[Rfam]
RNA sequence: CGGUCCGCAGACACCGAGACGCCGCCGGGCAUCCGCCCACGCUGAACCUGCGC
Numbered sequence: 001c002g003g004u005c006c007g008c009a010g011a012c013a014c015c016g017a018g019a020c021g022c023c024g025c026c027g028g029g030c031a032u033c034c035g036c037c038c039a040c041g042c043u044g045a046a047c048c049u050g051c052g053c
Base pairs, nucleotide, nucleotide: 001016002015003014004013027038028037029036030035
RNA: COG3860 RNA